[Rfam]
A member of the RNA family "IS605-orfB-I RNA", 200 nucleotides long. The base pairs follow the family's consensus structure, which is taken from published work.
RNA sequence: UCUGGAUACACUUGUAUUCAUCCAAGAGAAUGAGGUAAGUCACUUUACGGAAUUUAGUAUAAGUAAUACAUUUUAGGAUUGAUAAAGACUUUCAUAAAGUGAAAUUCUAAAAUGUUGGGAUAACCGUAUGUCCUUUAACACUACUUGUGUUAUAAAAAUAAUCUUGAAUAAUUUUAAAUAAGUUCUCAAGUUACGGUCUU
Numbered sequence: 001u002c003u004g005g006a007u008a009c010a011c012u013u014g015u016a017u018u019c020a021u022c023c024a025a026g027a028g029a030a031u032g033a034g035g036u037a038a039g040u041c042a043c044u045u046u047a048c049g050g051a052a053u054u055u056a057g058u059a060u061a062a063g064u065a066a067u068a069c070a071u072u073u074u075a076g077g078a079u080u081g082a083u084a085a086a087g088a089c090u091u092u093c094a095u096a097a098a099g100u101g102a103a104a105u106u107c108u109a110a111a112a113u114g115u116u117g118g119g120a121u122a123a124c125c126g127u128a129u130g131u132c133c134u135u136u137a138a139c140a141c142u143a144c145u146u147g148u149g150u151u152a153u154a155a156a157a158a159u160a161a162u163c164u165u166g167a168a169u170a171a172u173u174u175u176a177a178a179u180a181a182g183u184u185c186u187c188a189a190g191u192u193a194c195g196g197u198c199u200u
Base pairs, nucleotide, nucleotide: 001051002050003049004048006046008044010040011039012038013037014036015035017034018033019032020031021030022028068115069114070113071112072111073110074109075108076107077106078105079104080103088100089099091097117134118133119132120131121130123197124196125195126194127193128192129158136152137151138150139149140148163190164189165188166187167186170183
Dot-bracket structure: ((((.(.(.((((((.((((((.....).)))))))))))...).).))))................(((((((((((((.......((.(.....).))..))))))))))))).[[[[[.(((((((]]]]].(((((.......))))).....)....(((((..(............)..))))).))))))...